[Rfam]
RNA: Archaeal small subunit ribosomal RNA, nucleotides 1 to 529
RNA sequence: AUUCCGGUUGAUCCUGCCGGACCCGACUGCUAUCGGGGUGAGACUAAGCCAUGCGAGUCGUGCGCCCUCGGGUAUGCGAGGGCGCGGCGCACGGCUCAGUAACACGUAGCUAACCUACCCUGAGGAGGGGGAUACCCCCGGGAAACUGGGGUUAAUCCCCCAUAGGUCUGGAUACCUGGAAUGGGUUCAGGCCAAAAUGGAUCUGCGCGCAUCCUGCACAGGUCCGCCUCAGGAUGGGGCUGCGGCCCAUCAGGUAGUUGGCGGGGUAAAGGCCCACCAAGCCGAUAACGGGUGCGGGCUCUGGAAGGAGGAGCCCGGAGAUGGGCACUGAGACAAGGGCCCAGGUCCUACGGGGCGCAGCAGGCGCGAAACCUCCACAAUGCGGGAAACCGCGAUGGGGUUACCCCGAGUGUCGCCCGCUGAGGGCGACUUUUCUGGGGUCUAAAAAGCCCCAGGAAUAAGGGGAGGGCAAGUCUGGUGUCAGCCGCCGCGGUAAUACCAGCUCCCCGAGUGGUCGGGACGUUUAUUG
Numbered sequence: 001a002u003u004c005c006g007g008u009u010g011a012u013c014c015u016g017c018c019g020g021a022c023c024c025g026a027c028u029g030c031u032a033u034c035g036g037g038g039u040g041a042g043a044c045u046a047a048g049c050c051a052u053g054c055g056a057g058u059c060g061u062g063c064g065c066c067c068u069c070g071g072g073u074a075u076g077c078g079a080g081g082g083c084g085c086g087g088c089g090c091a092c093g094g095c096u097c098a099g100u101a102a103c104a105c106g107u108a109g110c111u112a113a114c115c116u117a118c119c120c121u122g123a124g125g126a127g128g129g130g131g132a133u134a135c136c137c138c139c140g141g142g143a144a145a146c147u148g149g150g151g152u153u154a155a156u157c158c159c160c161c162a163u164a165g166g167u168c169u170g171g172a173u174a175c176c177u178g179g180a181a182u183g184g185g186u187u188c189a190g191g192c193c194a195a196a197a198u199g200g201a202u203c204u205g206c207g208c209g210c211a212u213c214c215u216g217c218a219c220a221g222g223u224c225c226g227c228c229u230c231a232g233g234a235u236g237g238g239g240c241u242g243c244g245g246c247c248c249a250u251c252a253g254g255u256a257g258u259u260g261g262c263g264g265g266g267u268a269a270a271g272g273c274c275c276a277c278c279a280a281g282c283c284g285a286u287a288a289c290g291g292g293u294g295c296g297g298g299c300u301c302u303g304g305a306a307g308g309a310g311g312a313g314c315c316c317g318g319a320g321a322u323g324g325g326c327a328c329u330g331a332g333a334c335a336a337g338g339g340c341c342c343a344g345g346u347c348c349u350a351c352g353g354g355g356c357g358c359a360g361c362a363g364g365c366g367c368g369a370a371a372c373c374u375c376c377a378c379a380a381u382g383c384g385g386g387a388a389a390c391c392g393c394g395a396u397g398g399g400g401u402u403a404c405c406c407c408g409a410g411u412g413u414c415g416c417c418c419g420c421u422g423a424g425g426g427c428g429a430c431u432u433u434u435c436u437g438g439g440g441u442c443u444a445a446a447a448a449g450c451c452c453c454a455g456g457a458a459u460a461a462g463g464g465g466a467g468g469g470c471a472a473g474u475c476u477g478g479u480g481u482c483a484g485c486c487g488c489c490g491c492g493g494u495a496a497u498a499c500c501a502g503c504u505c506c507c508c509g510a511g512u513g514g515u516c517g518g519g520a521c522g523u524u525u526a527u528u529g
Stems, first nucleotide, its partner, number of pairs: 004020005022519010033409009042367001048365003052362003057088003062085009095320003105244007114237002119233007127161004136151006166192008175184002199225007246292003253283003258280004263275003295317004299310004322343005345356004373399001375398003381394005412430007435455007462508006475502004484491002